[Rfam]
RNA sequence: AGUAACUGAGGUCGGAACAGGUAGCCGACACCACGCAUAAGCGGUAGGAGAUGCAGAUUACCACCUGCCUUUACU
Numbered sequence: 001a002g003u004a005a006c007u008g009a010g011g012u013c014g015g016a017a018c019a020g021g022u023a024g025c026c027g028a029c030a031c032c033a034c035g036c037a038u039a040a041g042c043g044g045u046a047g048g049a050g051a052u053g054c055a056g057a058u059u060a061c062c063a064c065c066u067g068c069c070u071u072u073a074c075u
Stems, first nucleotide, its partner, number of pairs: 001075004008069001011029005020062004031048001034043003053068004